[Rfam]
RNA sequence: AAUAAUUAAAAAAACGAGGUCCAAUAAAUGACUUAUUUACAAGCUUCUCUUAACUUGUUGUUGAAGGAGGGCUCACACUAGCUAAUUUAAGCUAAAUGUGUGAGUCCUCUUUGACGUUUGUCAUUAACGAGGACGAAGAGACGUCCUCAGGACGUCUUUUU
Numbered sequence: 001a002a003u004a005a006u007u008a009a010a011a012a013a014a015c016g017a018g019g020u021c022c023a024a025u026a027a028a029u030g031a032c033u034u035a036u037u038u039a040c041a042a043g044c045u046u047c048u049c050u051u052a053a054c055u056u057g058u059u060g061u062u063g064a065a066g067g068a069g070g071g072c073u074c075a076c077a078c079u080a081g082c083u084a085a086u087u088u089a090a091g092c093u094a095a096a097u098g099u100g101u102g103a104g105u106c107c108u109c110u111u112u113g114a115c116g117u118u119u120g121u122c123a124u125u126a127a128c129g130a131g132g133a134c135g136a137a138g139a140g141a142c143g144u145c146c147u148c149a150g151g152a153c154g155u156c157u158u159u160u161u
Stems, first nucleotide, its partner, number of pairs: 027125006039058005045053002069107002072104007079094005129148007